[Rfam]
RNA: Small nucleolar RNA SNORD79
Organism: Callorhinchus milii
RNA sequence: AGCAGAUAUUAAUGAUGUGAAAACCAUUUGGAAUCUCUCUGACAAAGAGUGAAAGAGACGUGUUGUUGCUGAAGCUGCG
Numbered sequence: 001a002g003c004a005g006a007u008a009u010u011a012a013u014g015a016u017g018u019g020a021a022a023a024c025c026a027u028u029u030g031g032a033a034u035c036u037c038u039c040u041g042a043c044a045a046a047g048a049g050u051g052a053a054a055g056a057g058a059c060g061u062g063u064u065g066u067u068g069c070u071g072a073a074g075c076u077g078c079g
Base pairs, nucleotide, nucleotide: 002078003077004076005075007073